The record is a 73-nucleotide sequence from Arcanobacterium haemolyticum, which matches "tRNA" in Rfam.
RNA sequence: GGACUCUUAGCUCAGUUGGUAGAGCAACGCGUUUACACCGCGUGUGUCAUCGGUUCGAGCCCGGUAGGGUCCA
Numbered sequence: 001g002g003a004c005u006c007u008u009a010g011c012u013c014a015g016u017u018g019g020u021a022g023a024g025c026a027a028c029g030c031g032u033u034u035a036c037a038c039c040g041c042g043u044g045u046g047u048c049a050u051c052g053g054u055u056c057g058a059g060c061c062c063g064g065u066a067g068g069g070u071c072c073a
Stems, first nucleotide, its partner, number of pairs: 001072007010025004027043005049065005
It is annotated as a transfer RNA.
The base pairs follow the family's consensus structure, which is taken from published work.